[Rfam]
The record is an 87-nucleotide RNA sequence from Electrophorus electricus, which matches "let-7 microRNA precursor family" in Rfam. From the family's description: This family represents the microRNAs (miRNA) let-7 and mir-98. let-7 was identified from a study of developmental timing in C. elegans, and was later shown to be part of a much larger class of non-coding RNAs termed miRNAs. On this family, see Rougvie, Nat Rev Genet 2001: "Control of developmental timing in animals". The family has 64 seed sequences and 8,694 matches in Rfam 15.1. The organism belongs to Electrophorus, within Eukaryota. The family's consensus secondary structure was predicted with RNAalifold.
RNA sequence: ACAGUGUGAGGUAGUAGAUUGUAUAGUUGUGGGAUAGUGAUGUUAUCCUGUGUUGAAGAUAACUAUACAAUCUACUGCCUUCCCUGA
Numbered sequence: 001a002c003a004g005u006g007u008g009a010g011g012u013a014g015u016a017g018a019u020u021g022u023a024u025a026g027u028u029g030u031g032g033g034a035u036a037g038u039g040a041u042g043u044u045a046u047c048c049u050g051u052g053u054u055g056a057a058g059a060u061a062a063c064u065a066u067a068c069a070a071u072c073u074a075c076u077g078c079c080u081u082c083c084c085u086g087a
Stems, first nucleotide, its partner, number of pairs: 002086003006082001008081020032048004051058001